[Rfam]
RNA sequence: CGCUCAUCCCCGGGGGGCCGCUGAUGCGCGGCUGAGAGGUGGUCAGCAGACCACGACCCGCUGAACCUGAUCCGGUUGACACCGGCGUAGGGAGGGCCGCGGCAGACCCG
Numbered sequence: 001c002g003c004u005c006a007u008c009c010c011c012g013g014g015g016g017g018c019c020g021c022u023g024a025u026g027c028g029c030g031g032c033u034g035a036g037a038g039g040u041g042g043u044c045a046g047c048a049g050a051c052c053a054c055g056a057c058c059c060g061c062u063g064a065a066c067c068u069g070a071u072c073c074g075g076u077u078g079a080c081a082c083c084g085g086c087g088u089a090g091g092g093a094g095g096g097c098c099g100c101g102g103c104a105g106a107c108c109c110g
Stems, first nucleotide, its partner, number of pairs: 008096003011060004016054001017032005040053005066091004072085004

The record is a 110-nucleotide RNA from Novosphingobium lindaniclasticum, which matches "TPP riboswitch aptamer (THI element)" in Rfam. On this family, see Thore et al., J Am Chem Soc 2008: "Structural basis of thiamine pyrophosphate analogues binding to the eukaryotic riboswitch". The source organism's lineage runs through Bacteria, Pseudomonadota, Alphaproteobacteria, Sphingomonadaceae and Novosphingobium lindaniclasticum. The match comes from Rfam's covariance-model search (65 bits).